Source information: The record is a 132-nucleotide sequence from Sinocyclocheilus anshuiensis, which matches "Small nucleolar RNA SNORA9" in Rfam. NCBI's taxonomy places the organism under Eukaryota, Craniata, Gnathostomata, Otomorpha, Sinocyclocheilus. Rfam classes the family as an H/ACA-box small nucleolar RNA. About the family: ACA9 is a member of the H/ACA class of snoRNA that guide the sites of modification of uridines to pseudouridines. It scores 108 bits against the family's covariance model. The base pairs follow the family's consensus structure, which was predicted with PFOLD. Clan: SNORA9 clan.

[Rfam]
RNA sequence: CGGCAGGCCGUUCAGCGAGGUUGAGUCUGAAGUGACUCUGUCCUUUCCUAUUGUGUCUGCUAGAUGGACAUGAGGUGGUUUGAGGCCUGCUGUUUGCCUUCUGCAGUAUGGUUAUAGAAACCUCAGACAAUC
Number, nucleotide and partner (000 for none) at each position: 001c000002g000003g060004c059005a058006g057007g056008c055009c000010g000011u000012u000013c000014a000015g000016c000017g000018a044019g043020g042021u000022u000023g038024a037025g036026u035027c034028u000029g000030a000031a000032g000033u000034g027035a026036c025037u024038c023039u000040g000041u000042c020043c019044u018045u000046u000047c000048c000049u000050a000051u000052u000053g000054u000055g008056u007057c006058u005059g004060c003061u000062a000063g000064a000065u000066g000067g000068a000069c000070a000071u125072g124073a123074g122075g121076u000077g000078g000079u000080u000081u000082g000083a000084g000085g000086c111087c110088u108089g107090c106091u000092g104093u103094u000095u000096g000097c000098c000099u000100u000101c000102u000103g093104c092105a000106g090107u089108a088109u000110g087111g086112u000113u000114a000115u000116a000117g000118a000119a000120a000121c075122c074123u073124c072125a071126g000127a000128c000129a000130a000131u000132c000